[Rfam]
RNA sequence: ACCUUAUUUAGAGCGGUGGAGUGAAUAGGCACUAUGAAACCCGGCAACCGGCAAAGGUACGGUGCUAAUACCUACGGGAUUUUUCCGAAUGAUGAGUA
Numbered sequence: 001a002c003c004u005u006a007u008u009u010a011g012a013g014c015g016g017u018g019g020a021g022u023g024a025a026u027a028g029g030c031a032c033u034a035u036g037a038a039a040c041c042c043g044g045c046a047a048c049c050g051g052c053a054a055a056g057g058u059a060c061g062g063u064g065c066u067a068a069u070a071c072c073u074a075c076g077g078g079a080u081u082u083u084u085c086c087g088a089a090u091g092a093u094g095a096g097u098a
Base pairs, nucleotide, nucleotide: 003096004095005094006093007092008091013042015041016040017039021032022031023030026074027073028072029071043066044065045064046063048062049061050058052056070090075087076086077085078084079083
RNA: SAM riboswitch aptamer (S box leader)